[Rfam]
RNA sequence: CCUGUGGACUAUACAAGAACUUGUGAGUAGUCUUAGGACAAAAGCAUAUAGGGUGAAACAGGAA
Dot-bracket structure: (((((...(((((........(((.....(((....)))....))))))))......)))))..

A member of the RNA family "RAGATH-18 RNA", 64 nucleotides long. Actinobacteria, Firmicutes, Fusobacteria, Thermotogae (1 example). Rfam classes the family as a small RNA.